[Rfam]
RNA sequence: UUGACCGUCCACUCCCACCGCGCGUCCGCGUUCACCAGCAUGUGCUCGCCGACGUACUCGCCGUCGGCCAGCACCCCGAGCCGCGUCUCGUUGCCGUACUCCCCCUCGCCGAGCCUGUCGACCUUGCCGUGGGCCAGGAGCAGGACCUCGUCCAUCGGGGUGCCGGCCCGCUCGAUGACCUGGCCGGCCUCGUACUCCCGCUGGGUGAACAGGUCGGCCAGGGCGGCGAGCACGUCGGCGUCGGCGAAGCCGCGCAGGGCGGGCAGCUCGCACAGCUCGGCGGAGAUGACCCGCACGUCCGCCCCGGUCGAGACGAACGUCAGCCGCCCGUCGGCCAUCUGGUAGGUCAGCCGCCGGUUGACCCGGUAGGCGCCGCCCACCGCCUCGACCCAGGGCAGCACGCGCAGCAGAUGACGGGAGGUGAUCUCCUGCAUCUGCGGCGGCGUCUUGGUCGUCGUGGCCAGGUUGCGCGCGGCCCUGGUGCUGAGGCUCAACCGGUUGUCGGU
Numbered sequence: 001u002u003g004a005c006c007g008u009c010c011a012c013u014c015c016c017a018c019c020g021c022g023c024g025u026c027c028g029c030g031u032u033c034a035c036c037a038g039c040a041u042g043u044g045c046u047c048g049c050c051g052a053c054g055u056a057c058u059c060g061c062c063g064u065c066g067g068c069c070a071g072c073a074c075c076c077c078g079a080g081c082c083g084c085g086u087c088u089c090g091u092u093g094c095c096g097u098a099c100u101c102c103c104c105c106u107c108g109c110c111g112a113g114c115c116u117g118u119c120g121a122c123c124u125u126g127c128c129g130u131g132g133g134c135c136a137g138g139a140g141c142a143g144g145a146c147c148u149c150g151u152c153c154a155u156c157g158g159g160g161u162g163c164c165g166g167c168c169c170g171c172u173c174g175a176u177g178a179c180c181u182g183g184c185c186g187g188c189c190u191c192g193u194a195c196u197c198c199c200g201c202u203g204g205g206u207g208a209a210c211a212g213g214u215c216g217g218c219c220a221g222g223g224c225g226g227c228g229a230g231c232a233c234g235u236c237g238g239c240g241u242c243g244g245c246g247a248a249g250c251c252g253c254g255c256a257g258g259g260c261g262g263g264c265a266g267c268u269c270g271c272a273c274a275g276c277u278c279g280g281c282g283g284a285g286a287u288g289a290c291c292c293g294c295a296c297g298u299c300c301g302c303c304c305c306g307g308u309c310g311a312g313a314c315g316a317a318c319g320u321c322a323g324c325c326g327c328c329c330g331u332c333g334g335c336c337a338u339c340u341g342g343u344a345g346g347u348c349a350g351c352c353g354c355c356g357g358u359u360g361a362c363c364c365g366g367u368a369g370g371c372g373c374c375g376c377c378c379a380c381c382g383c384c385u386c387g388a389c390c391c392a393g394g395g396c397a398g399c400a401c402g403c404g405c406a407g408c409a410g411a412u413g414a415c416g417g418g419a420g421g422u423g424a425u426c427u428c429c430u431g432c433a434u435c436u437g438c439g440g441c442g443g444c445g446u447c448u449u450g451g452u453c454g455u456c457g458u459g460g461c462c463a464g465g466u467u468g469c470g471c472g473c474g475g476c477c478c479u480g481g482u483g484c485u486g487a488g489g490c491u492c493a494a495c496c497g498g499u500u501g502u503c504g505g506u
Stems, first nucleotide, its partner, number of pairs: 007389003011385001014382001019330002022327002027323001028320003032316002036312001040308002048302002051299002054233002057230008065111004078101003082096002085094002118221001120219001122217002127212001129210002132206001134204004138199001140197001143196002149192002156187001158185002161178001166173001234296002240290004245285001250283003253279002256277002259271003331342004353377001355375003362370002391431005397425001399423003403418001405416001407415001437476002440473001443471004447465006477505002480500003484497001488495001

Saccharopolyspora sRNA 350: a 506-nucleotide RNA from Microbispora bryophytorum. The source organism's lineage runs through Bacteria, Actinomycetota, Streptosporangiales, Streptosporangiaceae and Microbispora. The match comes from Rfam's covariance-model search (122 bits). The family's RNA type in Rfam is antisense RNA. A reference for the family is Liu et al. (2013), "Prediction and characterization of small non-coding RNAs related to secondary metabolites in Saccharopolyspora erythraea", PLoS One.